[Rfam]
RNA sequence: CUCCCGGACGGAUCCCGUGGGGGGAAUCCGUUCCGGGAACGAGAAGCGCCCCGCUCCGACCCGUGGGG
Number, nucleotide and partner (000 for none) at each position: 001c066002u065003c037004c036005c035006g034007g033008a000009c030010g029011g028012a027013u026014c024015c023016c022017g000018u000019g000020g000021g000022g016023g015024g014025a000026a013027u012028c011029c010030g009031u000032u000033c007034c006035g005036g004037g003038a000039a000040c000041g056042a055043g054044a000045a000046g000047c000048g000049c000050c000051c000052c000053g000054c043055u042056c041057c000058g000059a000060c000061c000062c000063g000064u000065g002066g001067g000068g000

Background
Shown here is a 68-nucleotide RNA sequence from Streptomyces caatingaensis, a member of the family "Streptomyces RNA 2736". About the family: Identified by deep sequencing of transcriptome at the end of exponential growth phase. Appears smaller on northern blot than sequencing transcript. The base pairs follow the family's consensus structure. The literature on the family includes a 2011 paper in RNA Biol by Vockenhuber et al., "Deep sequencing-based identification of small non-coding RNAs in Streptomyces coelicolor".